[Rfam]
RNA sequence: UACCGCCGCUGAGAAGCGACGGAAUAGGGCGGCAGAAGUCAGCAGAUGCCGUAGUAGCCGUACCGGACGGCGAAGGGC
Numbered sequence: 001u002a003c004c005g006c007c008g009c010u011g012a013g014a015a016g017c018g019a020c021g022g023a024a025u026a027g028g029g030c031g032g033c034a035g036a037a038g039u040c041a042g043c044a045g046a047u048g049c050c051g052u053a054g055u056a057g058c059c060g061u062a063c064c065g066g067a068c069g070g071c072g073a074a075g076g077g078c
Stems, first nucleotide, its partner, number of pairs: 001026002003022003007018004038047003048078003057071005
The family of this 78-nucleotide RNA from Brucella anthropi is "Group II catalytic intron D1-D4-1". Rfam 15.1 lists 2,508 matches to the family in 1,144 species. NCBI's taxonomy places the organism under Bacteria, Alphaproteobacteria, Hyphomicrobiales, Brucellaceae, Brucella anthropi. On this family, see Bonen and Vogel, Trends Genet 2001: "The ins and outs of group II introns". From the family's description: Group II introns are found in rRNA, tRNA and mRNA of organelles in fungi, plants and protists, and also in mRNA in bacteria.